About this RNA: This 349-nucleotide RNA from Fusarium poae belongs to the Rfam family "Group I catalytic intron". Rfam describes the family as follows. Group I catalytic introns are large self-splicing ribozymes. They catalyse their own excision from mRNA, tRNA and rRNA precursors in a wide range of organisms. The core secondary structure consists of 9 paired regions (P1-P9). These fold to essentially two domains - the P4-P6 domain (formed from the stacking of P5, P4, P6 and P6a helices) and the P3-P9 domain (formed from the P8, P3, P7 and P9 helices). On this family, see Cech, Annu Rev Biochem 1990: "Self-splicing of group I introns". Lineage of the source: Eukaryota > saccharomyceta > sordariomyceta > Nectriaceae > Fusarium sambucinum species complex. A search with the family's covariance model found it, with a score of 88 bits.

RNA sequence: UCAUGGGCAUGAUUAGGGCCCCAGAGAAAUUAGGUCAAAAAAGGUGGAGUGAACCUUCACCUAGUCUUUAUAUAAAGGCAAAAUCUUCAAAUUGCGGGGAACUCUUAAAGACAAAUCUACCAAGUUAAUACAGUAAUGUAAUUAAUGGAACAGGUAAUGACUCGUUGUAAGGUAAAAACGAUUUGUAUAAAGAAAUGCAAUAGAUAAUCCGCAGCCAAGUACCGAAACACUUAUAAUUACCGGUAUGCAGUUCAUCGACUAAAUGGAGGUUGGUAAAUAAUUACGGCGCGAACGAAGUCCGCUCUAAUUAUUUGCUUAAGAUAUAGUCAGGCAUAACUUAAAGGUUAUG
Numbered sequence: 001u002c003a004u005g006g007g008c009a010u011g012a013u014u015a016g017g018g019c020c021c022c023a024g025a026g027a028a029a030u031u032a033g034g035u036c037a038a039a040a041a042a043g044g045u046g047g048a049g050u051g052a053a054c055c056u057u058c059a060c061c062u063a064g065u066c067u068u069u070a071u072a073u074a075a076a077g078g079c080a081a082a083a084u085c086u087u088c089a090a091a092u093u094g095c096g097g098g099g100a101a102c103u104c105u106u107a108a109a110g111a112c113a114a115a116u117c118u119a120c121c122a123a124g125u126u127a128a129u130a131c132a133g134u135a136a137u138g139u140a141a142u143u144a145a146u147g148g149a150a151c152a153g154g155u156a157a158u159g160a161c162u163c164g165u166u167g168u169a170a171g172g173u174a175a176a177a178a179c180g181a182u183u184u185g186u187a188u189a190a191a192g193a194a195a196u197g198c199a200a201u202a203g204a205u206a207a208u209c210c211g212c213a214g215c216c217a218a219g220u221a222c223c224g225a226a227a228c229a230c231u232u233a234u235a236a237u238u239a240c241c242g243g244u245a246u247g248c249a250g251u252u253c254a255u256c257g258a259c260u261a262a263a264u265g266g267a268g269g270u271u272g273g274u275a276a277a278u279a280a281u282u283a284c285g286g287c288g289c290g291a292a293c294g295a296a297g298u299c300c301g302c303u304c305u306a307a308u309u310a311u312u313u314g315c316u317u318a319a320g321a322u323a324u325a326g327u328c329a330g331g332c333a334u335a336a337c338u339u340a341a342a343g344g345u346u347a348u349g
Stems, first nucleotide, its partner, number of pairs: 001018002004015003082271005088265002093213006103204003214251002219246006255329001257328005273315011334347005